[Rfam]
RNA sequence: GAGAUGACAUGCUUCUUUAUAUCCCCAUAUGGAUUAGGCUGCUAUGGAAUGUAAGGAAGUGUGUGGUUUCAGG
Number, nucleotide and partner (000 for none) at each position: 001g000002a000003g000004a067005u066006g000007a064008c063009a062010u061011g060012c059013u058014u057015c056016u055017u054018u053019a052020u051021a050022u049023c000024c000025c047026c046027a045028u044029a043030u000031g000032g000033a000034u000035u000036a000037g000038g000039c000040u000041g000042c000043u029044a028045u027046g026047g025048a000049a022050u021051g020052u019053a018054a017055g016056g015057a014058a013059g012060u011061g010062u009063g008064u007065g000066g005067u004068u000069u000070c000071a000072g000073g000
The family of this 73-nucleotide RNA sequence from Gallus gallus is "mir-1 microRNA precursor family". Pairs were carried over by alignment from the consensus structure, which was predicted with RNAalifold. For this family Rfam cites "An extensive class of small RNAs in Caenorhabditis elegans" (Lee and Ambros, Science, 2001). Lineage of the source: Eukaryota > Deuterostomia > Sauria > Aves > Gallus. Rfam's curators put it in the seed alignment. From the family's description: This family represents the microRNA (miRNA) mir-1 family. miRNAs are transcribed as ~70nt precursors (modelled here) and subsequently processed by the Dicer enzyme to give a ~22nt product. In this case the mature sequence comes from the 3' arm of the precursor. The extents of the hairpin precursors are not generally known and are estimated based on hairpin prediction. The products are thought to have regulatory roles through complementarity to mRNA. The involvement of Dicer in miRNA processing suggests a relationship with the phenomenon of RNA interference. miRNAs are numbered based on the sequence of the mature RNA. This family also contains the mir-206 from human, which appears to be related to mir-1.